RNA sequence: GCGCCCGGAGGUCAACCUCCGACAGCGCGUAGCGCCCUCGGGGGCCAUUUGG
Numbered sequence: 001g002c003g004c005c006c007g008g009a010g011g012u013c014a015a016c017c018u019c020c021g022a023c024a025g026c027g028c029g030u031a032g033c034g035c036c037c038u039c040g041g042g043g044g045c046c047a048u049u050u051g052g
Stems, first nucleotide, its partner, number of pairs: 016044007025035004
Record summary:
This 52-nucleotide RNA from Ancylobacter pratisalsi belongs to the Rfam family "ffh sRNA". For this family Rfam cites "Identification of candidate structured RNAs in the marine organism 'Candidatus Pelagibacter ubique'" (Meyer et al., BMC Genomics, 2009). The source organism's lineage runs through Bacteria, Pseudomonadati, Alphaproteobacteria, Hyphomicrobiales and Ancylobacter.